[Rfam]
RNA sequence: CUUCUUAUAUCGCUGAAUCUAUUUUAGAGCGGGGGACCCAUCCGCGGUAUUUUUACCGCACGGGGUGAAUCCUUCUUAGUAAGGUAGGGCUACUCUUUUGGCCCGAAUCCGACAGCUAACCUCGUAAGCGUGAAGAGAGAGGAUGU
Numbered sequence: 001c002u003u004c005u006u007a008u009a010u011c012g013c014u015g016a017a018u019c020u021a022u023u024u025u026a027g028a029g030c031g032g033g034g035g036a037c038c039c040a041u042c043c044g045c046g047g048u049a050u051u052u053u054u055a056c057c058g059c060a061c062g063g064g065g066u067g068a069a070u071c072c073u074u075c076u077u078a079g080u081a082a083g084g085u086a087g088g089g090c091u092a093c094u095c096u097u098u099u100g101g102c103c104c105g106a107a108u109c110c111g112a113c114a115g116c117u118a119a120c121c122u123c124g125u126a127a128g129c130g131u132g133a134a135g136a137g138a139g140a141g142g143a144u145g146u
Stems, first nucleotide, its partner, number of pairs: 011130004018028003029125006039062001063110003071084004087104004